[Rfam]
RNA sequence: GAAUAUGUUCCGGGGAGCUGGUAAAGCCGGCUGAGAGGGAAUGAGCAGCACAAUUCCGACCCGUUAACCUGAUCUGGGUAAUGCCAGCGUAGGGACAAAAAGCUUUGUUCGC
Numbered sequence: 001g002a003a004u005a006u007g008u009u010c011c012g013g014g015g016a017g018c019u020g021g022u023a024a025a026g027c028c029g030g031c032u033g034a035g036a037g038g039g040a041a042u043g044a045g046c047a048g049c050a051c052a053a054u055u056c057c058g059a060c061c062c063g064u065u066a067a068c069c070u071g072a073u074c075u076g077g078g079u080a081a082u083g084c085c086a087g088c089g090u091a092g093g094g095a096c097a098a099a100a101a102g103c104u105u106u107g108u109u110c111g112c
Stems, first nucleotide, its partner, number of pairs: 006100001008098002011063004017031005038057005068093004074087004
RNA: TPP riboswitch aptamer (THI element)
Organism: Paenibacillus arenilitoris